[Rfam]
This 81-nucleotide RNA sequence from Anolis carolinensis belongs to the Rfam family "Small nucleolar RNA SNORD53/SNORD92". A reference for the family is Kiss-Laszlo et al. (1996), "Site-specific ribose methylation of preribosomal RNA: a novel function for small nucleolar RNAs", Cell. The base pairs follow the family's consensus structure. Clan: SNORD52 clan. NCBI's taxonomy places the organism under Eukaryota, Craniata, Squamata, Iguania, Anolis. Rfam links the family to the GO terms nucleolus and RNA processing.

RNA sequence: AUGCUAUGAUGACCUUCGUCUUGGUUUCGCUUAUUGCUGAAUUCCAUUGAUGACGACACAUUCUCUUGGCUGUCUGAGCAU
Numbered sequence: 001a002u003g004c005u006a007u008g009a010u011g012a013c014c015u016u017c018g019u020c021u022u023g024g025u026u027u028c029g030c031u032u033a034u035u036g037c038u039g040a041a042u043u044c045c046a047u048u049g050a051u052g053a054c055g056a057c058a059c060a061u062u063c064u065c066u067u068g069g070c071u072g073u074c075u076g077a078g079c080a081u
Stems, first nucleotide, its partner, number of pairs: 001081004
Dot-bracket structure: ((((.........................................................................))))